[Rfam]
Nucleotides: 116
Stems, first nucleotide, its partner, number of pairs: 005112004011106008021096004027090005033084003
Number, partner (000 for none) and nucleotide at each position: 001000c002000a003000c004000u005112g006111a007110a008109u009000g010000g011106c012105a013104g014103g015102g016101c017100a018099g019000c020000u021096c022095u023094c024093c025000u026000u027090u028089g029088g030087c031086a032000g033084g034083g035082a036000a037000a038000g039000g040000c041000u042000a043000g044000c045000a046000g047000u048000u049000u050000c051000u052000c053000a054000u055000c056000c057000a058000u059000u060000a061000g062000c063000u064000a065000u066000u067000c068000a069000g070000c071000u072000c073000c074000u075000c076000u077000u078000g079000c080000c081000c082035u083034c084033c085000a086031u087030g088029c089028c090027a091000a092000a093024g094023g095022a096021g097000a098000a099018c100017u101016g102015c103014c104013c105012u106011g107000u108000g109008a110007u111006u112005c113000u114000c115000a116000c

Overview:
Shown here is a 116-nucleotide sequence from Oryza glumipatula, a member of the family "mir-399 microRNA precursor family". Rfam links the family to the GO terms RISC complex and miRNA-mediated post-transcriptional gene silencing. On this family, see Jones-Rhoades and Bartel, Mol Cell 2004: "Computational Identification of Plant MicroRNAs and Their Targets, Including a Stress-Induced miRNA". The organism belongs to Oryza, within Eukaryota. About the family: mir-399 was identified in both Arabidopsis thaliana and Oryza sativa computationally and was later experimentally verified. mir-399 is thought to target mRNAs coding for a phosphatase transporter. The mature sequence is excised from the 3' arm of the hairpin.